This 119-nucleotide RNA sequence from Lachnospiraceae bacterium TWA4 belongs to the Rfam family "FMN riboswitch aptamer (RFN element)". Rfam's curators write: The RFN element is a highly conserved domain that is found frequently in the 5'-untranslated regions of prokaryotic mRNAs that encode for flavin mononucleotide (FMN) biosynthesis and transport proteins. Pairs were carried over by alignment from the consensus structure, which is taken from published work. NCBI's taxonomy places the organism under Bacteria, Bacillati, Bacillota, Lachnospirales, Lachnospiraceae.
[Rfam]
RNA sequence: UUAAAUCUUCGAGGCGGGGUGAAAUUCCCCACCGGCAGUAGAGUCUGCAAACCACAAAAGGUGGCUGAUACGGUGUGAUUCCGUAACCGACGGUAUAGUCCGGAUGAUAGAGGAUAGAA
Numbered sequence: 001u002u003a004a005a006u007c008u009u010c011g012a013g014g015c016g017g018g019g020u021g022a023a024a025u026u027c028c029c030c031a032c033c034g035g036c037a038g039u040a041g042a043g044u045c046u047g048c049a050a051a052c053c054a055c056a057a058a059a060g061g062u063g064g065c066u067g068a069u070a071c072g073g074u075g076u077g078a079u080u081c082c083g084u085a086a087c088c089g090a091c092g093g094u095a096u097a098g099u100c101c102g103g104a105u106g107a108u109a110g111a112g113g114a115u116a117g118a119a
Base pairs, nucleotide, nucleotide: 005115006114007113008112009111010110017029018028019027031099032098033089034088035048036047037046038045043087044086052064053063069085070084071083072082073081091102092101093100